A member of the RNA family "mir-4667 microRNA precursor family" from Neogale vison, 93 nucleotides long. A search with the family's covariance model found it, with a score of 72 bits. The family's consensus secondary structure was predicted with RNAalifold.
RNA sequence: GGAGGUUAAGGUCCUGAUUGGGGUUAGAAGGAGAACCCAAGGAAGGCUGACUUGAAGGCCCCUUCUCUCUGUCCCUGCAGGACUUUGGCCUGG
Numbered sequence: 001g002g003a004g005g006u007u008a009a010g011g012u013c014c015u016g017a018u019u020g021g022g023g024u025u026a027g028a029a030g031g032a033g034a035a036c037c038c039a040a041g042g043a044a045g046g047c048u049g050a051c052u053u054g055a056a057g058g059c060c061c062c063u064u065c066u067c068u069c070u071g072u073c074c075c076u077g078c079a080g081g082a083c084u085u086u087g088g089c090c091u092g093g
Base pairs, nucleotide, nucleotide: 003091004090005089006088007087008086009085010084011083012082013081014080015079016078019077020076021075022074023073025071026070027069028068029066030065031064032063033062036057038054039053040052041051